This 141-nucleotide RNA sequence from Sinocyclocheilus rhinocerous belongs to the Rfam family "U4 spliceosomal RNA". On this family, see Plaschka et al., Nature 2017: "Structure of a pre-catalytic spliceosome". By type it is a spliceosomal small nuclear RNA. It scores 103 bits against the family's covariance model. The organism belongs to Sinocyclocheilus, within Eukaryota.
Nucleotides: 141
Base pairs, nucleotide, nucleotide: 020052021051022050023049024048026047027046028045034042035041086116087115088113089112090111092109093108094107095106096105130141131140132139133138
Number, partner (000 for none) and nucleotide at each position: 001000a002000u003000u004000u005000u006000u007000u008000c009000g010000c011000a012000g013000a014000g015000g016000c017000a018000a019000u020052a021051u022050u023049g024048u025000a026047g027046c028045u029000u030000a031000u032000g033000a034042g035041g036000u037000a038000c039000a040000u041035c042034c043000g044000a045028a046027g047026c048024g049023u050022g051021a052020u053000u054000a055000u056000u057000g058000u059000u060000g061000g062000u063000u064000g065000a066000a067000a068000a069000c070000u071000u072000u073000a074000c075000c076000c077000a078000a079000u080000a081000c082000c083000g084000c085000a086116c087115c088113a089112g090111g091000a092109u093108g094107a095106c096105u097000u098000g099000a100000a101000a102000u103000a104000c105096a106095g107094u108093c109092a110000g111090c112089c113088u114000u115087g116086g117000c118000a119000a120000u121000u122000u123000u124000u125000g126000c127000c128000a129000g130141c131140u132139u133138c134000u135000u136000u137000g138133g139132a140131a141130g
Clan: U4 clan. From the family's description: U4 small nuclear RNA (U4 snRNA) is a component of the major U2-dependent spliceosome.